[Rfam]
RNA: Alphaproteobacterial ar14
Organism: Paracoccus limosus
Nucleotides: 116
Stems, first nucleotide, its partner, number of pairs: 007037002009034007042073010081111004085106005
Number, partner (000 for none) and nucleotide at each position: 001000g002000g003000a004000a005000u006000u007037c008036g009034g010033c011032g012031c013030c014029c015028c016000c017000u018000c019000c020000u021000c022000c023000u024000c025000c026000c027000u028015g029014g030013g031012g032011c033010g034009c035000c036008u037007g038000a039000u040000a041000g042073c043072g044071g045070u046069a047068a048067u049066g050065g051064c052000c053000u054000c055000c056000u057000c058000c059000u060000c061000c062000c063000u064051g065050c066049c067048a068047u069046u070045g071044c072043c073042g074000c075000a076000c077000c078000u079000a080000u081111a082110c083109g084108c085106g086105g087104c088103c089102c090000c091000u092000c093000c094000u095000c096000c097000u098000c099000c100000c101000u102089g103088g104087g105086c106085c107000a108084g109083c110082g111081u112000u113000g114000c115000g116000c